[Rfam]
RNA sequence: UCGAGACUGCGUGUCCGAACGCCGCAUACGACCGAUAAACUGGCGAGUGGAUCGGGCCGAGCGCAGCUCUCGGCCCUUCCGCCAAUGAUCAGCCAGCAGCCGCUGCAACCCCAGGGAG
Numbered sequence: 001u002c003g004a005g006a007c008u009g010c011g012u013g014u015c016c017g018a019a020c021g022c023c024g025c026a027u028a029c030g031a032c033c034g035a036u037a038a039a040c041u042g043g044c045g046a047g048u049g050g051a052u053c054g055g056g057c058c059g060a061g062c063g064c065a066g067c068u069c070u071c072g073g074c075c076c077u078u079c080c081g082c083c084a085a086u087g088a089u090c091a092g093c094c095a096g097c098a099g100c101c102g103c104u105g106c107a108a109c110c111c112c113a114g115g116g117a118g
Stems, first nucleotide, its partner, number of pairs: 049080003054076001058072004094105004
RNA: Streptomyces-metK RNA